[Rfam]
RNA: Metazoan signal recognition particle RNA
RNA sequence: ACUGGGCGUCGUGGCGGGCGUCUGUGAACCAGCUUCUAGGUAGUAGAUAAGUGUGGAUGGAGUGAAGGGAGGAGUCCUGUGGGUGUCUCGGCAACGGCGACCGAGCGUCCGUGCCAAGCGCUACGUCGCCAGGGGUCAUCAGACGGAAGUUUGAAGAUCCCGGGCGCAUAAGGAGUGGUGCACGGCUCAGGGCCGAAAGGCAGCAGGCAAAAGCCACCGCGCGGUGCAGUGGCCGGAUAGCGCUUGUGAGUUGUCGACCUCCCACAGCCUCUCUGAUAUCCUUCAGACCACUUAUCAU
Numbered sequence: 001a002c003u004g005g006g007c008g009u010c011g012u013g014g015c016g017g018g019c020g021u022c023u024g025u026g027a028a029c030c031a032g033c034u035u036c037u038a039g040g041u042a043g044u045a046g047a048u049a050a051g052u053g054u055g056g057a058u059g060g061a062g063u064g065a066a067g068g069g070a071g072g073a074g075u076c077c078u079g080u081g082g083g084u085g086u087c088u089c090g091g092c093a094a095c096g097g098c099g100a101c102c103g104a105g106c107g108u109c110c111g112u113g114c115c116a117a118g119c120g121c122u123a124c125g126u127c128g129c130c131a132g133g134g135g136u137c138a139u140c141a142g143a144c145g146g147a148a149g150u151u152u153g154a155a156g157a158u159c160c161c162g163g164g165c166g167c168a169u170a171a172g173g174a175g176u177g178g179u180g181c182a183c184g185g186c187u188c189a190g191g192g193c194c195g196a197a198a199g200g201c202a203g204c205a206g207g208c209a210a211a212a213g214c215c216a217c218c219g220c221g222c223g224g225u226g227c228a229g230u231g232g233c234c235g236g237a238u239a240g241c242g243c244u245u246g247u248g249a250g251u252u253g254u255c256g257a258c259c260u261c262c263c264a265c266a267g268c269c270u271c272u273c274u275g276a277u278a279u280c281c282u283u284c285a286g287a288c289c290a291c292u293u294a295u296c297a298u
Stems, first nucleotide, its partner, number of pairs: 001044003004023007028041003046296008058285005066274007077267007088257008102246007109236002113233004118227005124221003127166004132161006139154006167173001175217005185208003192201003